Shown here is a 148-nucleotide RNA from Aerobium aerolatum, a member of the family "Alphaproteobacterial sRNA ar9". A search with the family's covariance model found it, with a score of 112 bits. The literature on the family includes a 2012 paper in RNA Biol by del Val et al., "A survey of sRNA families in alpha-proteobacteria".
RNA sequence: AUAACGAAAGGGCGAAGCAAUAAUUCGCUCUCCUACGCUGUCAAAGUCUUGGGAGGAUGCGAUCUAGGCGCGGUAACCCGCAGCCGCCGAAUAUCGGAAAGCAGAUCGGACGCGUUUAAAUUGCAAGGCUUCGGCCUUGCAUUUUUUU
Numbered sequence: 001a002u003a004a005c006g007a008a009a010g011g012g013c014g015a016a017g018c019a020a021u022a023a024u025u026c027g028c029u030c031u032c033c034u035a036c037g038c039u040g041u042c043a044a045a046g047u048c049u050u051g052g053g054a055g056g057a058u059g060c061g062a063u064c065u066a067g068g069c070g071c072g073g074u075a076a077c078c079c080g081c082a083g084c085c086g087c088c089g090a091a092u093a094u095c096g097g098a099a100a101g102c103a104g105a106u107c108g109g110a111c112g113c114g115u116u117u118a119a120a121u122u123g124c125a126a127g128g129c130u131u132c133g134g135c136c137u138u139g140c141a142u143u144u145u146u147u148u
Base pairs, nucleotide, nucleotide: 003148004147006145011029012028013027014026015025016024036114037113038112046058047057048056049055061107062106063105064104065103067085068084069083070081071080072079087097088096089095122141123140124139125138126137127136128135129134